[Rfam]
RNA: PyrR binding site
Organism: Clostridium bornimense
RNA sequence: AUAACCUUUAAAGCUAGUCCAGAGAGGCUAGAAAGGGUAGGUAAAUUGCAAUAGGUAUGCAGUGGUGCAUACAAUUUUAACAGGAUAACUAUGCCUUCCCUUAGGGAAGGCUUUUUUAUU
Numbered sequence: 001a002u003a004a005c006c007u008u009u010a011a012a013g014c015u016a017g018u019c020c021a022g023a024g025a026g027g028c029u030a031g032a033a034a035g036g037g038u039a040g041g042u043a044a045a046u047u048g049c050a051a052u053a054g055g056u057a058u059g060c061a062g063u064g065g066u067g068c069a070u071a072c073a074a075u076u077u078u079a080a081c082a083g084g085a086u087a088a089c090u091a092u093g094c095c096u097u098c099c100c101u102u103a104g105g106g107a108a109g110g111c112u113u114u115u116u117u118a119u120u
Base pairs, nucleotide, nucleotide: 003038005036006035007034008033009032014031015030016029017028018027019026050077051076055072056071057070058069059068060067061066091113093111094110095109096108097107098106099105100104